Rfam assigns this 85-nucleotide RNA from Halanaerobium praevalens to the family "tRNA". The base pairs follow the family's consensus structure, which is taken from published work. Lineage of the source: Bacteria > Bacillati > Bacillota > Clostridia > Halanaerobium praevalens.
RNA sequence: GGAGAGAUGUCCGAAUUGGCUAAGGGGCCGGACUUGAAAUCCGGUGAAGCCGAAAGGUGUCAGGGUUCGAGUCCCUGUCUCUCCG
Numbered sequence: 001g002g003a004g005a006g007a008u009g010u011c012c013g014a015a016u017u018g019g020c021u022a023a024g025g026g027g028c029c030g031g032a033c034u035u036g037a038a039a040u041c042c043g044g045u046g047a048a049g050c051c052g053a054a055a056g057g058u059g060u061c062a063g064g065g066u067u068c069g070a071g072u073c074c075c076u077g078u079c080u081c082u083c084c085g
Stems, first nucleotide, its partner, number of pairs: 001084007010026003028044005061077005